Background
Shown here is a 209-nucleotide RNA from Cyprinus carpio, a member of the family "Small nucleolar RNA SNORD17". A reference for the family is Huttenhofer et al. (2001), "RNomics: an experimental approach that identifies 201 candidates for novel, small, non-messenger RNAs in mouse", EMBO J.
[Rfam]
RNA sequence: GUGGCAUGAUGAACGUGUUUAUCCAUUCGCUGAGCGCUGCUGGUUCUGUCCCUCAGCGGCCGUGCGGUCCGUUCUGGGCCGCGGGGUUACAGUGGUCUGGUUCUGCUCGGCUGAUGCAAUGUUCUAUUGGGUCGACCGCGGCGGGAUCUGAUGCACUGGUGCGAGGGUCAGCCCGGUUCUGACAAAGACGAAUAGACGUUUCUGAUCAC
Numbered sequence: 001g002u003g004g005c006a007u008g009a010u011g012a013a014c015g016u017g018u019u020u021a022u023c024c025a026u027u028c029g030c031u032g033a034g035c036g037c038u039g040c041u042g043g044u045u046c047u048g049u050c051c052c053u054c055a056g057c058g059g060c061c062g063u064g065c066g067g068u069c070c071g072u073u074c075u076g077g078g079c080c081g082c083g084g085g086g087u088u089a090c091a092g093u094g095g096u097c098u099g100g101u102u103c104u105g106c107u108c109g110g111c112u113g114a115u116g117c118a119a120u121g122u123u124c125u126a127u128u129g130g131g132u133c134g135a136c137c138g139c140g141g142c143g144g145g146a147u148c149u150g151a152u153g154c155a156c157u158g159g160u161g162c163g164a165g166g167g168u169c170a171g172c173c174c175g176g177u178u179c180u181g182a183c184a185a186a187g188a189c190g191a192a193u194a195g196a197c198g199u200u201u202c203u204g205a206u207c208a209c
Stems, first nucleotide, its partner, number of pairs: 010208003014204001017201001020198001023195001025193005030187002034183001039172004050167005056160001058088004063083008091157004095152003104143002106140001109137002112134004117129005174181002
The snoRNA HBI-43 belongs to the C/D family of snoRNAs, guiding 2'O-ribose methylation at position U3797 of the 28S rRNA. Pseudouridylation in position U3797 is predicted to be guided by the H/ACA snoRNA ACA48. It scores 52 bits against the family's covariance model.